Rfam assigns this 109-nucleotide RNA sequence from Streptomyces avermitilis to the family "SAM (S-adenosyl methionine) riboswitch aptamer". It is one of the family's seed sequences. Clan: SAM clan.

[Rfam]
RNA sequence: GGUCAAGAGCGUCAGCGACAAGCCCUGGCUUGCUGACCGGCAACCCUCGCGACGCGGUGGGGUGCCCCAGGUGACGACCGGACCGGAUGACCUUCGGUAAGCGCGAGGC
Numbered sequence: 001g002g003u004c005a006a007g008a009g010c011g012u013c014a015g016c017g018a019c020a021a022g023c024c025c026u027g028g029c030u031u032g033c034u035g036a037c038c039g040g041c042a043a044c045c046c047u048c049g050c051g052a053c054g055c056g057g058u059g060g061g062g063u064g065c066c067c068c069a070g071g072u073g074a075c076g077a078c079c080g081g082a083c084c085g086g087a088u089g090a091c092c093u094u095c096g097g098u099a100a101g102c103g104c105g106a107g108g109c
Stems, first nucleotide, its partner, number of pairs: 001079004009038001011037006021030002039066003044062003048057001082098006
The literature on the family includes a 2008 paper in RNA by Weinberg et al., "The aptamer core of SAM-IV riboswitches mimics the ligand-binding site of SAM-I riboswitches".